Shown here is an 80-nucleotide RNA from Castanea mollissima, a member of the family "Small nucleolar RNA R160".
The base pairs follow the family's consensus structure.
Lineage of the source: Eukaryota > eudicotyledons > fabids > Fagaceae > Castanea.

[Rfam]
RNA sequence: AGCAAAAUGAUGAAUUUCUAUGCUCUGAAUUUUAUGUGGAACAUGUAUUAUGUAUUUGCCUUCAAAGUUCUCUGAUUGCU
Numbered sequence: 001a002g003c004a005a006a007a008u009g010a011u012g013a014a015u016u017u018c019u020a021u022g023c024u025c026u027g028a029a030u031u032u033u034a035u036g037u038g039g040a041a042c043a044u045g046u047a048u049u050a051u052g053u054a055u056u057u058g059c060c061u062u063c064a065a066a067g068u069u070c071u072c073u074g075a076u077u078g079c080u
Base pairs, nucleotide, nucleotide: 001080002079003078004077005076
From the family's description: snoR160 is a C/D box small nucleolar RNA, which acts as a methylation guide for 25S ribosomal RNA in plants. snoR160 has been alternatively named snoZ270 in rice.